RNA sequence: CUACGACGCAAACAUGGAUGAAUUCUCUAUCAUUUUUGAUAGAGAAUUCAUCCAUGUUUGCGUCGUAG
Numbered sequence: 001c002u003a004c005g006a007c008g009c010a011a012a013c014a015u016g017g018a019u020g021a022a023u024u025c026u027c028u029a030u031c032a033u034u035u036u037u038g039a040u041a042g043a044g045a046a047u048u049c050a051u052c053c054a055u056g057u058u059u060g061c062g063u064c065g066u067a068g
Base pairs, nucleotide, nucleotide: 001068002067003066005064006063007062008061010059011058012057013056014055015054016053017052018051019050020049021048022047023046024045025044026043027042028041
RNA: mir-302 microRNA precursor family